[Rfam]
The family of this 374-nucleotide RNA from Ectobacillus ponti is "Bacterial RNase P class B".

RNA sequence: AGCCCGAGAGAAUCGCGCGGAGCUCUUGCUCCGUGAGGAAAGUCCGUGCUCGCACAAGCUGUGAUGCUUGUAGUGUUCGUGCCCGGUGAAAGCCGGGGCAGCCUUUGGCUGACGGCGGGGAACAAGCCUAAGUCCGGUUGGAUAUGGCUUUACUACUCUGAAAGUGCCACAGUGACGAAGCUCUGCUGGAAACGGCGGAGGUGGAACGAGGUAAACCCCACGAGCGAGAAACCUAAAUAUUGGUCAGGGAAGCGCCGGCAGGGAAACAGAACCGCACCGGCGCCAUGGCAUAUGCCAUGAGAUAGAUGAUUCUCCAUGCUUGUGCGAGGACAGAGUCCGUUUGCAGCGCAGCAUGAACAGAACGCGGCUUACGA
Numbered sequence: 001a002g003c004c005c006g007a008g009a010g011a012a013u014c015g016c017g018c019g020g021a022g023c024u025c026u027u028g029c030u031c032c033g034u035g036a037g038g039a040a041a042g043u044c045c046g047u048g049c050u051c052g053c054a055c056a057a058g059c060u061g062u063g064a065u066g067c068u069u070g071u072a073g074u075g076u077u078c079g080u081g082c083c084c085g086g087u088g089a090a091a092g093c094c095g096g097g098g099c100a101g102c103c104u105u106u107g108g109c110u111g112a113c114g115g116c117g118g119g120g121a122a123c124a125a126g127c128c129u130a131a132g133u134c135c136g137g138u139u140g141g142a143u144a145u146g147g148c149u150u151u152a153c154u155a156c157u158c159u160g161a162a163a164g165u166g167c168c169a170c171a172g173u174g175a176c177g178a179a180g181c182u183c184u185g186c187u188g189g190a191a192a193c194g195g196c197g198g199a200g201g202u203g204g205a206a207c208g209a210g211g212u213a214a215a216c217c218c219c220a221c222g223a224g225c226g227a228g229a230a231a232c233c234u235a236a237a238u239a240u241u242g243g244u245c246a247g248g249g250a251a252g253c254g255c256c257g258g259c260a261g262g263g264a265a266a267c268a269g270a271a272c273c274g275c276a277c278c279g280g281c282g283c284c285a286u287g288g289c290a291u292a293u294g295c296c297a298u299g300a301g302a303u304a305g306a307u308g309a310u311u312c313u314c315c316a317u318g319c320u321u322g323u324g325c326g327a328g329g330a331c332a333g334a335g336u337c338c339g340u341u342u343g344c345a346g347c348g349c350a351g352c353a354u355g356a357a358c359a360g361a362a363c364g365c366g367g368c369u370u371a372c373g374a
Stems, first nucleotide, its partner, number of pairs: 008314007016035006040370003044367005049228005054071006077223005082097006098113001099111005114218002117158003125149004132143003164216002166212003181200008232248003252283007284299006316354005322349004
A search with the family's covariance model found it, with a score of 294 bits.
For this family Rfam cites "The Ribonuclease P Database" (Brown, Nucleic Acids Res, 1999).
Taxonomically the source falls in Ectobacillus (Bacteria, Bacillota, Bacilli, Bacillaceae).
Gene Ontology terms of the family: dimeric ribonuclease P complex, ribonuclease P activity and tRNA processing.